Notes:
The family of this 175-nucleotide RNA sequence from Mycobacterium haemophilum is "M-box riboswitch aptamer (ykoK leader)". Rfam's curators write: M-box riboswitch, also know as ykoK leader is described as a metaloregulatory RNA that sense divalent metals and function as a genetic control element of genes related to divalent metal transport in bacteria. It was first reported upstream of the B.subtilis ykoK gene and genes with related functions in other bacteria. The literature on the family includes a 2004 paper in Proc Natl Acad Sci U S A by Barrick et al., "New RNA motifs suggest an expanded scope for riboswitches in bacterial genetic control".
[Rfam]
RNA sequence: CAAGCACCUCGGUAGGUGAGGCGUCUGCAUGGAUAUAGGCCACUGACCCCGAACGUCGAGAGACGCCUCGGGUCAGGACAGCUCUUCCCGGACCCAAGGGUUGAGCCCAAGUGGCUCCUGGACGUUGGUCCAGAUACGUCGUGCAGUGCCAAAGCUCCGACGAGAGGGGUGUGUU
Number, nucleotide and partner (000 for none) at each position: 001c000002a000003a000004g000005c171006a170007c169008c168009u167010c166011g161012g000013u097014a000015g156016g155017u154018g000019a000020g150021g149022c148023g000024u000025c146026u145027g144028c143029a142030u141031g140032g139033a000034u000035a000036u000037a000038g000039g115040c114041c113042a112043c111044u000045g074046a073047c072048c071049c070050c000051g000052a000053a000054c065055g064056u063057c062058g000059a000060g000061a000062g057063a056064c055065g054066c000067c000068u000069c000070g049071g048072g047073u046074c045075a000076g000077g000078a000079c000080a000081g106082c105083u104084c103085u000086u000087c100088c099089c098090g000091g000092a000093c000094c000095c000096a000097a013098g089099g088100g087101u000102u000103g084104a083105g082106c081107c000108c000109a000110a000111g043112u042113g041114g040115c039116u000117c000118c133119u132120g131121g130122a000123c000124g000125u000126u000127g000128g000129u000130c121131c120132a119133g118134a000135u000136a000137c000138g000139u032140c031141g030142u029143g028144c027145a026146g025147u000148g022149c021150c020151a000152a000153a000154g017155c016156u015157c000158c000159g000160a000161c011162g000163a000164g000165a000166g010167g009168g008169g007170u006171g005172u000173g000174u000175u000